[Rfam]
RNA sequence: AGCGAAUGAUGAAUUGUAUUGGUCUCGUUCGACGUAAUGGCAGUGUCACUGCCUUGCCGACAACCAUAUUACAUCACCACCCAUAGCCUGACGCU
Numbered sequence: 001a002g003c004g005a006a007u008g009a010u011g012a013a014u015u016g017u018a019u020u021g022g023u024c025u026c027g028u029u030c031g032a033c034g035u036a037a038u039g040g041c042a043g044u045g046u047c048a049c050u051g052c053c054u055u056g057c058c059g060a061c062a063a064c065c066a067u068a069u070u071a072c073a074u075c076a077c078c079a080c081c082c083a084u085a086g087c088c089u090g091a092c093g094c095u
Base pairs, nucleotide, nucleotide: 001095002094003093004092042055043054
Dot-bracket structure: ((((.....................................((..........))....................................))))
This 95-nucleotide RNA sequence from Closterium sp. NIES-68 belongs to the Rfam family "Small nucleolar RNA Z43". The family's RNA type in Rfam is C/D-box small nucleolar RNA. The match comes from Rfam's covariance-model search (69 bits). Its family is annotated with RNA processing and nucleolus in the Gene Ontology. The family's consensus secondary structure was predicted with PFOLD. The source organism's lineage runs through Eukaryota, Streptophytina, Desmidiales, Closterium and Closterium peracerosum-strigosum-littorale complex. Rfam 15.1 lists 859 matches to the family in 240 species.